Overview:
PyrR binding site: a 104-nucleotide RNA from Oceanobacillus piezotolerans.
RNA sequence: AGUCCUUUUAAAGAUAGUCCCGUGAGGCUAAAAAAGGUAUCGGAUGAACGGUGUCAUUACCGAUACAAAACCCUUUUUUCCUUAUGGAAAAAAGGGUUUUUUUA
Numbered sequence: 001a002g003u004c005c006u007u008u009u010a011a012a013g014a015u016a017g018u019c020c021c022g023u024g025a026g027g028c029u030a031a032a033a034a035a036g037g038u039a040u041c042g043g044a045u046g047a048a049c050g051g052u053g054u055c056a057u058u059a060c061c062g063a064u065a066c067a068a069a070a071c072c073c074u075u076u077u078u079u080c081c082u083u084a085u086g087g088a089a090a091a092a093a094g095g096g097u098u099u100u101u102u103u104a
Base pairs, nucleotide, nucleotide: 004037005036006035007034008033009032015030016029017028018027019026047064049062050061051060052059053058068099069098070097071096072095073094074093075092076091077090078089079088080087081086
The source organism's lineage runs through Bacteria, Bacillati, Bacillota, Caryophanales and Oceanobacillus. The base pairs follow the family's consensus structure, which is taken from published work. The family has 41 seed sequences and 1,498 matches in Rfam 15.1.